[Rfam]
RNA sequence: UCCGGGGGAAGCUCACUGCCGAGGCCACCCACGGGGUGCGCGUCACCCACGCCCCGCCUCGGGGAAGGUCUGAGGGAAGGGCCACGCGCGGCUCCAGCAGAGCCCCGCCCGCGAGUGGGCGGGUGAGCCACCAGCAAGGGGGGGCGCCGCGUUAUUCGGGCUGAACCUGGGCAGGAGAAACCGUUGACGUUAAAAGUUGGGCUUUACCCUUCGUUACGAGGCGGUAAAACCCCGGUGGAUGCUCGUAGCCCCGCGGUGCUUUGAGACAGACUCACGGCCGGCGAGUGUUGAGUCCAAUGGGUGAGGUGGGGCAGCGCCCCAUAACCCAAUUCAGACUACUCUCCCCCGGA
Numbered sequence: 001u002c003c004g005g006g007g008g009a010a011g012c013u014c015a016c017u018g019c020c021g022a023g024g025c026c027a028c029c030c031a032c033g034g035g036g037u038g039c040g041c042g043u044c045a046c047c048c049a050c051g052c053c054c055c056g057c058c059u060c061g062g063g064g065a066a067g068g069u070c071u072g073a074g075g076g077a078a079g080g081g082c083c084a085c086g087c088g089c090g091g092c093u094c095c096a097g098c099a100g101a102g103c104c105c106c107g108c109c110c111g112c113g114a115g116u117g118g119g120c121g122g123g124u125g126a127g128c129c130a131c132c133a134g135c136a137a138g139g140g141g142g143g144g145c146g147c148c149g150c151g152u153u154a155u156u157c158g159g160g161c162u163g164a165a166c167c168u169g170g171g172c173a174g175g176a177g178a179a180a181c182c183g184u185u186g187a188c189g190u191u192a193a194a195a196g197u198u199g200g201g202c203u204u205u206a207c208c209c210u211u212c213g214u215u216a217c218g219a220g221g222c223g224g225u226a227a228a229a230c231c232c233c234g235g236u237g238g239a240u241g242c243u244c245g246u247a248g249c250c251c252c253g254c255g256g257u258g259c260u261u262u263g264a265g266a267c268a269g270a271c272u273c274a275c276g277g278c279c280g281g282c283g284a285g286u287g288u289u290g291a292g293u294c295c296a297a298u299g300g301g302u303g304a305g306g307u308g309g310g311g312c313a314g315c316g317c318c319c320c321a322u323a324a325c326c327c328a329a330u331u332c333a334g335a336c337u338a339c340u341c342u343c344c345c346c347c348g349g350a
Stems, first nucleotide, its partner, number of pairs: 001350004007344003012305006020061005034048005070334005080279004090104005105122006123275005129269001143260009306322007

This 350-nucleotide RNA sequence from Podilymbus podiceps belongs to the Rfam family "Nuclear RNase P". A search with the family's covariance model found it, with a score of 183 bits.